[Rfam]
RNA sequence: AUGCCUUAAACUAAUGAGUAAGGAAAAUAGCAGACCGGUUUGAAUUAUCGGUCCCCCUAACAUGUUUAGGCCAUUAUUUGCAGGGUAUAGGUUGCCCUGUCGUGUCCCCUACUUAGGGACGUGGCGGCGUUAGCGGCCUGCCCA
Number, nucleotide and partner (000 for none) at each position: 001a000002u000003g000004c023005c022006u021007u020008a019009a000010a000011c000012u000013a000014a000015u000016g000017a000018g000019u008020a007021a006022g005023g004024a000025a000026a000027a000028u000029a000030g000031c000032a000033g053034a052035c051036c050037g049038g048039u047040u000041u000042g000043a000044a000045u000046u000047a039048u038049c037050g036051g035052u034053c033054c000055c000056c070057c069058u068059a067060a000061c000062a000063u000064g000065u000066u000067u059068a058069g057070g056071c000072c000073a000074u000075u000076a000077u000078u000079u000080g000081c000082a000083g143084g142085g141086u140087a000088u000089a139090g138091g137092u136093u135094g134095c133096c000097c000098u126099g125100u124101c123102g122103u000104g120105u119106c118107c117108c116109c000110u000111a000112c000113u000114u000115a000116g108117g107118g106119a105120c104121g000122u102123g101124g100125c099126g098127g000128c000129g000130u000131u000132a000133g095134c094135g093136g092137c091138c090139u089140g086141c085142c084143c083144a000
The record is a 144-nucleotide RNA sequence from Schistosoma margrebowiei, which matches "U12 minor spliceosomal RNA" in Rfam.
NCBI's taxonomy places the organism under Eukaryota, Eumetazoa, Spiralia, Schistosomatidae, Schistosoma.
By type it is a spliceosomal small nuclear RNA.
Clan: U2 clan.
On this family, see Tarn and Steitz, Trends Biochem Sci 1997: "Pre-mRNA splicing: the discovery of a new spliceosome doubles the challenge".